[Rfam]
RNA: Small nucleolar RNA ACA59
RNA sequence: GCUCAGUGUGGGUUAAUGGGGUGAUGCUGCCCUCCCGGCUCUACCACUAAUGACCCUGCGCCAGUUACUCAACACGAGUGCCUCAGUUACCUGCCAAUAUAAUGCGGGUAGUAAUACCUAUUCUAGUUAGUUGUGAGGACCAACU
Numbered sequence: 001g002c003u004c005a006g007u008g009u010g011g012g013u014u015a016a017u018g019g020g021g022u023g024a025u026g027c028u029g030c031c032c033u034c035c036c037g038g039c040u041c042u043a044c045c046a047c048u049a050a051u052g053a054c055c056c057u058g059c060g061c062c063a064g065u066u067a068c069u070c071a072a073c074a075c076g077a078g079u080g081c082c083u084c085a086g087u088u089a090c091c092u093g094c095c096a097a098u099a100u101a102a103u104g105c106g107g108g109u110a111g112u113a114a115u116a117c118c119u120a121u122u123c124u125a126g127u128u129a130g131u132u133g134u135g136a137g138g139a140c141c142a143a144c145u
Base pairs, nucleotide, nucleotide: 002060004058005057006056008054009053019032020031021030022029070133071132072131073130077098078094079093080092106123107122108121109120110119111118